[Rfam]
RNA sequence: UGUAAUAGAAUAGGUGACUCAAGGAUGAUCGGCUAUUUUCCCGUGAAGGGAGGUGGUCGCUAUGACAAUAUUCGAAGCACUAAUGCUUGUAUUCACUUUCGCAGCGCUAGUCGUAACACUCUUGUCAUUUCACCAUAAAAAAUAACCCAUCCUUGAGUUAGAGGCUCAUUUAGGAUGGAUUAUUUUAUCUGCUCGCCGAUCCCCAAAGGGACCCUACUAUUACAUUGACCGUUCAAUGCGCAAUCAUUGGGCG
Dot-bracket structure: (((((.((..(.((((.((((((((.(.(....(((.(((((.....))))))))........(((((.(......(.(..........).)........(...............)..).)))))..................).)..))))))))..........(.................).......)))).)((((....)))).....)).))))).....(((((((((......)))))))))
Rfam assigns this 253-nucleotide RNA from Sporosarcina luteola to the family "BsrG".
Rfam's curators write: bsrE, bsrG and bsrH pair through intermolecular interactions with antisense sRNAs. They form type I toxin/antitoxin system that includes an mRNA encoding for a short, toxic peptide (bsrE, bsrG and bsrH) and an antitoxin that is comprised of an antisense RNA. bsrG encodes a 39-amino-acid toxin, and the 180 nucleotide antisense sRNA called SR4 acts as the antitoxin (they overlap by 123 nucleotides). SR4 interaction with the 3'UTR of bsrG RNA promotes bsrG degradation and inhibits its translation. BsrG interferes with cell envelope biosynthesis, causes membrane invaginations and delocalisation of the cell wall synthesis and initiates autolysis. bsrE RNA encodes 30 amino-acid toxin peptide.
NCBI's taxonomy places the organism under Bacteria, Bacillati, Bacillota, Caryophanaceae, Sporosarcina.
A reference for the family is Saito et al. (2008), "Novel small RNA-encoding genes in the intergenic regions of Bacillus subtilis", Gene.
The match comes from Rfam's covariance-model search (83 bits).